Background
Shown here is a 48-nucleotide RNA sequence from Alloalcanivorax dieselolei, a member of the family "Guanidine-II riboswitch aptamer (mini-ykkC)". It scores 39 bits against the family's covariance model.
RNA sequence: CGCCGGGGACGACCCCGGAAGCCGGAUGCUUACGGCGGGACGGCCCGC
Dot-bracket structure: ..((((((....))))))................(((((....)))))
Numbered sequence: 001c002g003c004c005g006g007g008g009a010c011g012a013c014c015c016c017g018g019a020a021g022c023c024g025g026a027u028g029c030u031u032a033c034g035g036c037g038g039g040a041c042g043g044c045c046c047g048c
Stems, first nucleotide, its partner, number of pairs: 003018006035048005